[Rfam]
RNA sequence: GAUCCGAUAGUAUGGUAGAAAGAAAUAGAUGACCCUUUCUACCAUACUAUUUAUUUUAUUAGUGUUAUUUAAUGUCUAAAAAUAGA
Number, nucleotide and partner (000 for none) at each position: 001g000002a000003u000004c000005c000006g051007a050008u049009a048010g047011u046012a045013u044014g043015g042016u041017a040018g039019a038020a037021a036022g035023a000024a000025a000026u000027a000028g000029a000030u000031g000032a000033c000034c000035c022036u021037u020038u019039c018040u017041a016042c015043c014044a013045u012046a011047c010048u009049a008050u007051u006052u000053a000054u000055u000056u000057u000058a000059u000060u000061a000062g000063u000064g000065u000066u000067a000068u000069u000070u000071a000072a000073u000074g000075u000076c000077u000078a000079a000080a000081a000082a000083u000084a000085g000086a000
This 86-nucleotide RNA from Saxifraga stolonifera belongs to the Rfam family "Plastid-psbM 3UTR RNA". Plastid psbM is a non-coding RNA (ncRNA) recognised in plastids. It was found in the three prime untranslated region (3UTR) of psbM gene, its 3UTR location suggests a role in transcript maturation. On this family, see Richter et al., Plant Commun 2023: "Retrograde signaling in plants: A critical review focusing on the GUN pathway and beyond". The sequence is in the family's curated seed alignment. By type it is a cis-regulatory element. The organism belongs to Saxifraga, within Eukaryota. Rfam 15.1 lists 627 matches to the family in 337 species.